[Rfam]
RNA sequence: AUCGUUCAAUUUAGGUUUUAACUUAAAUCGGAAGUAGAUCUUUGAUCGAAGGAACGCAUG
Number, nucleotide and partner (000 for none) at each position: 001a000002u000003c056004g055005u054006u053007c052008a000009a028010u027011u026012u025013a024014g023015g022016u021017u000018u000019u000020a000021a016022c015023u014024u013025a012026a011027a010028u009029c000030g000031g057032a000033a000034g000035u000036a000037g047038a046039u045040c000041u000042u000043u000044g000045a039046u038047c037048g000049a000050a000051g000052g007053a006054a005055c004056g003057c031058a000059u000060g000
The record is a 60-nucleotide sequence, which matches "Glutamine riboswitch aptamer (glnA leader)" in Rfam.